[Rfam]
RNA sequence: GCAGACAGAAGAGGAGCGUUACCCAGGUAUCUAGGUUGCGGGGCCCCACCCCGAAGCAGUCUGGAGAGGGGGAGUAACGCCGAGAUACGGCAUGACAGGGGGCAUGGCGUAUCGGCUACGAAGGUUGAAUCCUUCUGGCUGUCAUCUAUUCACUAUGGUAAUGGAUAGAUGGGGAGCUUCUGGUUGU
Numbered sequence: 001g002c003a004g005a006c007a008g009a010a011g012a013g014g015a016g017c018g019u020u021a022c023c024c025a026g027g028u029a030u031c032u033a034g035g036u037u038g039c040g041g042g043g044c045c046c047c048a049c050c051c052c053g054a055a056g057c058a059g060u061c062u063g064g065a066g067a068g069g070g071g072g073a074g075u076a077a078c079g080c081c082g083a084g085a086u087a088c089g090g091c092a093u094g095a096c097a098g099g100g101g102g103c104a105u106g107g108c109g110u111a112u113c114g115g116c117u118a119c120g121a122a123g124g125u126u127g128a129a130u131c132c133u134u135c136u137g138g139c140u141g142u143c144a145u146c147u148a149u150u151c152a153c154u155a156u157g158g159u160a161a162u163g164g165a166u167a168g169a170u171g172g173g174g175a176g177c178u179u180c181u182g183g184u185u186g187u
Base pairs, nucleotide, nucleotide: 006182007181008180009179010178011177016080017079018078019077020076021075022074024072030065031064032063033062034061035060036059037058084113085112086111087110088109089108091106092105093104094103114140115139116138117137120135121134122133123132124131142172143171144170145169146168147167148166149165150164151163152162
RNA: Lysine riboswitch aptamer
Organism: Photobacterium gaetbulicola